RNA sequence: GGUUGGGCGCAAGCUUUCAAGACAUAGUUCUCCAAGGGUGAGGAGAA
Numbered sequence: 001g002g003u004u005g006g007g008c009g010c011a012a013g014c015u016u017u018c019a020a021g022a023c024a025u026a027g028u029u030c031u032c033c034a035a036g037g038g039u040g041a042g043g044a045g046a047a
Base pairs, nucleotide, nucleotide: 003020004019005018006015007014008013028047029046030045031044032043033042

Notes: Na+ riboswitch aptamer (DUF1646): a 47-nucleotide RNA sequence from Carnobacterium maltaromaticum. The source organism's lineage runs through Bacteria, Bacillota, Bacilli, Carnobacterium and Carnobacterium maltaromaticum. The base pairs follow the family's consensus structure, which is taken from published work. Gene Ontology terms of the family: sodium ion binding and regulation of gene expression. For this family Rfam cites "Na(+) riboswitches regulate genes for diverse physiological processes in bacteria" (White et al., Nat Chem Biol, 2022). Rfam's curators put it in the seed alignment.